A member of the RNA family "Fluoride riboswitch aptamer (crcB RNA motif)" from Paraburkholderia sp. DHOC27, 68 nucleotides long. Rfam links the family to the GO terms positive regulation of gene expression and response to fluoride. The match comes from Rfam's covariance-model search (51 bits).
RNA sequence: CUACCAGAUGGAGAUGGCAUUCCUCCGAUAACCACCGGGACUAUCCGGUUAAUGAUGCCUACACGUAC
Number, nucleotide and partner (000 for none) at each position: 001c000002u000003a000004c000005c000006a000007g000008a000009u000010g026011g025012a024013g023014a000015u000016g059017g058018c057019a056020u055021u054022c000023c013024u012025c011026c010027g000028a000029u000030a000031a000032c000033c000034a049035c048036c047037g046038g045039g044040a000041c000042u000043a000044u039045c038046c037047g036048g035049u034050u000051a000052a000053u000054g021055a020056u019057g018058c017059c016060u000061a000062c000063a000064c000065g000066u000067a000068c000